[Rfam]
RNA sequence: AGGCGCUUGCUGAAGGCCUGUUACCUAGGCUACGUACGGGGGACAUGUUCCCCAUCUGCGCCUAGGGGAAAGUCCCCGGACCAAUGGCAGAAAGUGCCACGCACGCACGUGCGGUCUGGCCUAUGUCGCAGCUCCAUAUCUCCCUGCCAAGAAGUUCUUCAACCUCGGUUGAAGCACUGAGCGGAGGGAGCGCGAUGAGGCCGCCCUUAGUCAAGAACUGGAUAGUUACGCAGGCAGUGCGUCAUGCGCACCAACUCCACGGGGCUCAUUCUCAGCGCGUC
Numbered sequence: 001a002g003g004c005g006c007u008u009g010c011u012g013a014a015g016g017c018c019u020g021u022u023a024c025c026u027a028g029g030c031u032a033c034g035u036a037c038g039g040g041g042g043a044c045a046u047g048u049u050c051c052c053c054a055u056c057u058g059c060g061c062c063u064a065g066g067g068g069a070a071a072g073u074c075c076c077c078g079g080a081c082c083a084a085u086g087g088c089a090g091a092a093a094g095u096g097c098c099a100c101g102c103a104c105g106c107a108c109g110u111g112c113g114g115u116c117u118g119g120c121c122u123a124u125g126u127c128g129c130a131g132c133u134c135c136a137u138a139u140c141u142c143c144c145u146g147c148c149a150a151g152a153a154g155u156u157c158u159u160c161a162a163c164c165u166c167g168g169u170u171g172a173a174g175c176a177c178u179g180a181g182c183g184g185a186g187g188g189a190g191c192g193c194g195a196u197g198a199g200g201c202c203g204c205c206c207u208u209a210g211u212c213a214a215g216a217a218c219u220g221g222a223u224a225g226u227u228a229c230g231c232a233g234g235c236a237g238u239g240c241g242u243c244a245u246g247c248g249c250a251c252c253a254a255c256u257c258c259a260c261g262g263g264g265c266u267c268a269u270u271c272u273c274a275g276c277g278c279g280u281c
Base pairs, nucleotide, nucleotide: 002281003280004279005278006277009276010275011274012273013272016235017234018233019232020231021230024066025065026064027063028062029061030060039053040052041051042050043049071266072265074264075263076262077261086098087097088096089095100113101112102111103110104109116203118201124197125196126195127194128193132190133189134188135187144184145183146182147181167177170174237251238250239249240248241247242246
RNA: RNase MRP
Organism: Monodelphis domestica